[Rfam]
The family of this 108-nucleotide RNA from Virgibacillus necropolis is "SAM riboswitch aptamer (S box leader)". On this family, see Grundy and Henkin, Mol Microbiol 1998: "The S box regulon: a new global transcription termination control system for methionine and cysteine biosynthesis genes in gram-positive bacteria".
RNA sequence: UUCUUAUCAAGAGAGACGGAGGGAUUGGCCCGACGAUGUCUCAGCAACCAGCCUUUUUGGCCAUGGUGCUAAUUCCAAUAGGUUAACUACUUACCUAGAAGAUAAGGG
Numbered sequence: 001u002u003c004u005u006a007u008c009a010a011g012a013g014a015g016a017c018g019g020a021g022g023g024a025u026u027g028g029c030c031c032g033a034c035g036a037u038g039u040c041u042c043a044g045c046a047a048c049c050a051g052c053c054u055u056u057u058u059g060g061c062c063a064u065g066g067u068g069c070u071a072a073u074u075c076c077a078a079u080a081g082g083u084u085a086a087c088u089a090c091u092u093a094c095c096u097a098g099a100a101g102a103u104a105a106g107g108g
Stems, first nucleotide, its partner, number of pairs: 001108008013042005021031003025078004043070004048066002051061003074100001079097005
Pairs were carried over by alignment from the consensus structure, which is taken from published work.